[Rfam]
RNA sequence: UGUGAAGUUAAUCACAAGCAAACACAUACCCCUUUGUUUGACCGUGAAAAAUUUCUCCCAUCCCCUUUGUUCGUUUGAAAAGACCCUUUGCAUAAUGCAAAGGGUCUUUUCUUCU
Number, nucleotide and partner (000 for none) at each position: 001u000002g057003u000004g055005a054006a053007g052008u051009u000010a000011a000012u000013c046014a045015c044016a000017a000018g000019c040020a039021a038022a037023c036024a035025c000026a000027u000028a000029c000030c000031c000032c000033u000034u000035u024036g023037u022038u021039u020040g019041a000042c000043c000044g015045u014046g013047a000048a000049a000050a000051a008052u007053u006054u005055c004056u000057c002058c000059c000060a000061u000062c000063c000064c000065c000066u000067u000068u000069g000070u000071u000072c000073g000074u000075u000076u000077g111078a110079a109080a108081a107082g106083a105084c104085c103086c102087u101088u100089u099090g098091c097092a000093u000094a000095a000096u000097g091098c090099a089100a088101a087102g086103g085104g084105u083106c082107u081108u080109u079110u078111c077112u000113u000114c000115u000
The record is a 115-nucleotide RNA sequence from Bacillus oleivorans, which matches "Listeria sRNA rli61" in Rfam. Rfam classes the family as a cis-regulatory element. Pairs were carried over by alignment from the consensus structure, which was predicted with RNAalifold. The organism belongs to Bacillus, within Bacteria. The literature on the family includes a 2009 paper in Nature by Toledo-Arana et al., "The Listeria transcriptional landscape from saprophytism to virulence".